This 36-nucleotide sequence from Oncorhynchus tshawytscha belongs to the Rfam family "Iron response element I". Gene Ontology term of the family: response to iron ion. A search with the family's covariance model found it, with a score of 36 bits.
RNA sequence: GAAGUUCUUGCUUCAAUAGUGAUUGAACAGAACUCC
Numbered sequence: 001g002a003a004g005u006u007c008u009u010g011c012u013u014c015a016a017u018a019g020u021g022a023u024u025g026a027a028c029a030g031a032a033c034u035c036c
Base pairs, nucleotide, nucleotide: 001036003034004033005032006031007030008029010028012027013026014025015024016023017021